tRNA: an 80-nucleotide RNA sequence from Salibacterium qingdaonense.
Taxonomically the source falls in Salibacterium (Bacteria, Bacillota, Bacilli, Bacillaceae).
By type it is a transfer RNA.
On this family, see Hou, Trends Biochem Sci 1993: "The tertiary structure of tRNA and the development of the genetic code".
The match comes from Rfam's covariance-model search (57 bits).
RNA sequence: GGCGGUGUGGCGGAACUGGCAGACGCGCACGACUCAAAAUCGUGUUCUUCGGAGUGUGGGUUCGAGUCCCACCACCGCUA
Numbered sequence: 001g002g003c004g005g006u007g008u009g010g011c012g013g014a015a016c017u018g019g020c021a022g023a024c025g026c027g028c029a030c031g032a033c034u035c036a037a038a039a040u041c042g043u044g045u046u047c048u049u050c051g052g053a054g055u056g057u058g059g060g061u062u063c064g065a066g067u068c069c070c071a072c073c074a075c076c077g078c079u080a
Base pairs, nucleotide, nucleotide: 001079002078003077004076005075006074007073010026011025012024028044029043030042031041032040056072057071058070059069060068